Rfam assigns this 52-nucleotide sequence to the family "L31-Actinobacteria ribosomal protein leader". Pairs were carried over by alignment from the consensus structure, which is taken from published work.
RNA sequence: CCGGCUCCGGUUCACGUCCGCAAGUGCGAAAUGCACGGGCGACCCGGCGGCC
Numbered sequence: 001c002c003g004g005c006u007c008c009g010g011u012u013c014a015c016g017u018c019c020g021c022a023a024g025u026g027c028g029a030a031a032u033g034c035a036c037g038g039g040c041g042a043c044c045c046g047g048c049g050g051c052c
Stems, first nucleotide, its partner, number of pairs: 003052003007047004015041005